[Rfam]
MIR9563 microRNA precursor family: a 134-nucleotide sequence from Brassica napus. Gene Ontology terms of the family: miRNA-mediated post-transcriptional gene silencing and RISC complex. A search with the family's covariance model found it, with a score of 92 bits. The organism belongs to Brassica, within Eukaryota.
RNA sequence: GGAAUAUAAAACCCCGUCUCUUAAUUUUUAACUAAAAAAGUUAAGAACUAGUUCUUAAAUUCUUAAAACUCUUAUUUAAGAACCGGUUUUUAACUUUUUUUAGUUAAAAGUUAAGAGACAGAUUCUUAUAUUUC
Numbered sequence: 001g002g003a004a005u006a007u008a009a010a011a012c013c014c015c016g017u018c019u020c021u022u023a024a025u026u027u028u029u030a031a032c033u034a035a036a037a038a039a040g041u042u043a044a045g046a047a048c049u050a051g052u053u054c055u056u057a058a059a060u061u062c063u064u065a066a067a068a069c070u071c072u073u074a075u076u077u078a079a080g081a082a083c084c085g086g087u088u089u090u091u092a093a094c095u096u097u098u099u100u101u102a103g104u105u106a107a108a109a110g111u112u113a114a115g116a117g118a119c120a121g122a123u124u125c126u127u128a129u130a131u132u133u134c
Stems, first nucleotide, its partner, number of pairs: 001134009011124001014121001016119024041093009
Dot-bracket structure: (((((((((.(..(.((((((((((((((((((((((((.(((((((((...................................)))))))))..)))))))))))))))))))))))).)..).)))))))))